[Rfam]
RNA: Guanidine-II riboswitch aptamer (mini-ykkC)
Organism: Strongylocentrotus purpuratus
RNA sequence: GGGAGGGGACGACCCCCCCCUACAAAAAUCGAGGGGGGACGUGUCCCCC
Numbered sequence: 001g002g003g004a005g006g007g008g009a010c011g012a013c014c015c016c017c018c019c020c021u022a023c024a025a026a027a028a029u030c031g032a033g034g035g036g037g038g039a040c041g042u043g044u045c046c047c048c049c
Base pairs, nucleotide, nucleotide: 001020002019003018005016006015007014008013034049035048036047037046038045